[Rfam]
The family of this 218-nucleotide RNA is "raiA RNA". The family's consensus secondary structure is taken from published work. The family's RNA type in Rfam is riboswitch.
RNA sequence: CUCCUUAGAGCUGUGGUUGAAAGUCGAAGCCCAGUCGCAGGCGAAACGACCCACGUAAGGUAACUUUGGUUACUGAGCAUGGUGCGGCUUUGGAGUAAGUCCUGCCUUAACCCUAAUAGGUUAUAACAAUAAGAGAAGAGUAGUAGUGAAGGACAAAGUUCCCGAGCAAACCUCUCAGCAGGCGAGUGUGGGGGCAAAGACCAGGUCAGUCUAAGGAA
Numbered sequence: 001c002u003c004c005u006u007a008g009a010g011c012u013g014u015g016g017u018u019g020a021a022a023g024u025c026g027a028a029g030c031c032c033a034g035u036c037g038c039a040g041g042c043g044a045a046a047c048g049a050c051c052c053a054c055g056u057a058a059g060g061u062a063a064c065u066u067u068g069g070u071u072a073c074u075g076a077g078c079a080u081g082g083u084g085c086g087g088c089u090u091u092g093g094a095g096u097a098a099g100u101c102c103u104g105c106c107u108u109a110a111c112c113c114u115a116a117u118a119g120g121u122u123a124u125a126a127c128a129a130u131a132a133g134a135g136a137a138g139a140g141u142a143g144u145a146g147u148g149a150a151g152g153a154c155a156a157a158g159u160u161c162c163c164g165a166g167c168a169a170a171c172c173u174c175u176c177a178g179c180a181g182g183c184g185a186g187u188g189u190g191g192g193g194g195c196a197a198a199g200a201c202c203a204g205g206u207c208a209g210u211c212u213a214a215g216g217a218a
Base pairs, nucleotide, nucleotide: 002217003216004215005214006213007212008211009210011209012208013207014203015202016201017200018199027189029187030041033089034088035087036086037085038084039083050082051081058074059073062070080196101182102181103180104179105178106133107132108131109130137175138174139173140172146167147166151161152160153159